[Rfam]
Rfam assigns this 97-nucleotide RNA from Carya illinoinensis to the family "Small nucleolar RNA snoR31/Z110/Z27".
Rfam links the family to the GO terms RNA processing and nucleolus.
The match comes from Rfam's covariance-model search (60 bits).
Nucleotides: 097
Stems, first nucleotide, its partner, number of pairs: 001097007043050002
Number, partner (000 for none) and nucleotide at each position: 001097a002096u003095c004094a005093u006092c007091a008000u009000a010000u011000g012000a013000u014000g015000a016000a017000a018000a019000g020000u021000u022000g023000a024000a025000a026000a027000a028000u029000c030000u031000u032000a033000g034000g035000a036000c037000a038000c039000c040000u041000u042000c043050c044049u045000a046000c047000a048000c049044a050043g051000u052000a053000u054000u055000u056000a057000u058000u059000a060000g061000c062000u063000g064000u065000g066000g067000a068000u069000g070000a071000g072000a073000a074000u075000a076000g077000a078000a079000a080000u081000u082000c083000c084000a085000u086000u087000c088000u089000g090000a091007u092006g093005a094004u095003g096002a097001u
The base pairs follow the family's consensus structure, which was predicted with PFOLD.
About the family: This family contains several related snoRNAs including R31, Z27 and Z110.
By type it is a C/D-box small nucleolar RNA.
The literature on the family includes a 2003 paper in Nucleic Acids Res by Chen et al., "The high diversity of snoRNAs in plants: identification and comparative study of 120 snoRNA genes from Oryza sativa".